[Rfam]
RNA sequence: AAGCUGACCUGCUCCGAAGCCUUCCGUCCUAAAUUCCUUUGACGCCUGCGUCAUCAGAACAUGGACGGCUGGCCGCAGGCGAGAUGACCUGCCGGGUUAUGGUGUAAACACCCUGGCCUCCCGUGUUUGGAAAGGAGAGAAAGUGGAGUUAAA
Numbered sequence: 001a002a003g004c005u006g007a008c009c010u011g012c013u014c015c016g017a018a019g020c021c022u023u024c025c026g027u028c029c030u031a032a033a034u035u036c037c038u039u040u041g042a043c044g045c046c047u048g049c050g051u052c053a054u055c056a057g058a059a060c061a062u063g064g065a066c067g068g069c070u071g072g073c074c075g076c077a078g079g080c081g082a083g084a085u086g087a088c089c090u091g092c093c094g095g096g097u098u099a100u101g102g103u104g105u106a107a108a109c110a111c112c113c114u115g116g117c118c119u120c121c122c123g124u125g126u127u128u129g130g131a132a133a134g135g136a137g138a139g140a141a142a143g144u145g146g147a148g149u150u151a152a153a
Base pairs, nucleotide, nucleotide: 004146006144010139012137013136014135015134019073020072021071024068025067026066027065028064029063034059035058036057075092076091077090078089079088094119095118096117097116098115099114101112102111103110104109120130121129
Description
The family of this 153-nucleotide RNA from Paremcibacter congregatus is "Molybdenum/Tungsten riboswitch aptamer (Moco RNA motif)". The match comes from Rfam's covariance-model search (69 bits). The family has 160 seed sequences and 1,248 matches in Rfam 15.1. The family's consensus secondary structure is taken from published work. Taxonomically the source falls in Paremcibacter (Bacteria, Pseudomonadota, Emcibacterales, Emcibacteraceae).